The record is a 145-nucleotide sequence from Selenomonas sputigena, which matches "FMN riboswitch aptamer (RFN element)" in Rfam. From the family's description: The RFN element is a highly conserved domain that is found frequently in the 5'-untranslated regions of prokaryotic mRNAs that encode for flavin mononucleotide (FMN) biosynthesis and transport proteins. Pairs were carried over by alignment from the consensus structure, which is taken from published work.
RNA sequence: AGCAGUCUUUGGGGCGGGGUGGAAGUCCCCACCGGCGGUGAAGGAAGCGCUUGCGUUGUUCGUGCUUCCUGCAGCCCGCGAGCCUUUGGGCAGAUUCGGUGUGAUUCCGAAGCCGACAGUAUAGUCUGGAUGGGAAAAGACGUGC
Numbered sequence: 001a002g003c004a005g006u007c008u009u010u011g012g013g014g015c016g017g018g019g020u021g022g023a024a025g026u027c028c029c030c031a032c033c034g035g036c037g038g039u040g041a042a043g044g045a046a047g048c049g050c051u052u053g054c055g056u057u058g059u060u061c062g063u064g065c066u067u068c069c070u071g072c073a074g075c076c077c078g079c080g081a082g083c084c085u086u087u088g089g090g091c092a093g094a095u096u097c098g099g100u101g102u103g104a105u106u107c108c109g110a111a112g113c114c115g116a117c118a119g120u121a122u123a124g125u126c127u128g129g130a131u132g133g134g135a136a137a138a139g140a141c142g143u144g145c
Stems, first nucleotide, its partner, number of pairs: 005141006017029003031125002033115002035079004074113002082091003095111005117128003